[Rfam]
RNA sequence: AAGACCUUUUAAAACAGUCCUGUGAGGCUGGAAAAGGAGCAGAGAUAACGUUGUACGGUAUACGUGUAUCUAAAAAGCCUUAUUCCCUCACGGAGAAUAAGGCUUUUUCUA
Numbered sequence: 001a002a003g004a005c006c007u008u009u010u011a012a013a014a015c016a017g018u019c020c021u022g023u024g025a026g027g028c029u030g031g032a033a034a035a036g037g038a039g040c041a042g043a044g045a046u047a048a049c050g051u052u053g054u055a056c057g058g059u060a061u062a063c064g065u066g067u068a069u070c071u072a073a074a075a076a077g078c079c080u081u082a083u084u085c086c087c088u089c090a091c092g093g094a095g096a097a098u099a100a101g102g103c104u105u106u107u108u109c110u111a
Stems, first nucleotide, its partner, number of pairs: 005037005015030005044070004049066003074106012087093001